[Rfam]
RNA sequence: UGGUAAAGUCUCCUGCACCUGUAUCACUGGAGGCACUCGGUCAUGCUGUGGGUCGCUGGCGGCCUUAGACGUUCAUCGUCAAUGGUGUGAUGUGAGGGCGGGUUAAAUGCCCG
Numbered sequence: 001u002g003g004u005a006a007a008g009u010c011u012c013c014u015g016c017a018c019c020u021g022u023a024u025c026a027c028u029g030g031a032g033g034c035a036c037u038c039g040g041u042c043a044u045g046c047u048g049u050g051g052g053u054c055g056c057u058g059g060c061g062g063c064c065u066u067a068g069a070c071g072u073u074c075a076u077c078g079u080c081a082a083u084g085g086u087g088u089g090a091u092g093u094g095a096g097g098g099c100g101g102g103u104u105a106a107a108u109g110c111c112c113g
Base pairs, nucleotide, nucleotide: 002019003018004017008034009033010032011031012030013029036096037095038094039093040091041090042089043088044087045086046085047084050065051064052063053062054061055060068080069079070078071077099113100112101111102110103109